eL15-Euryarchaeota ribosomal protein leader: a 51-nucleotide sequence.

RNA sequence: CCUGAUUCGUCAGGAUGAUAUGUGGGUGAAUACAGUCACUCGAAUCGAAAC
Numbered sequence: 001c002c003u004g005a006u007u008c009g010u011c012a013g014g015a016u017g018a019u020a021u022g023u024g025g026g027u028g029a030a031u032a033c034a035g036u037c038a039c040u041c042g043a044a045u046c047g048a049a050a051c
Base pairs, nucleotide, nucleotide: 001014002013003012004011005010016047017046018045024041025040026039027038028037
Rfam classes the family as a cis-regulatory leader. On this family, see Eckert and Weinberg, BMC Microbiol 2020: "Discovery of 20 novel ribosomal leader candidates in bacteria and archaea".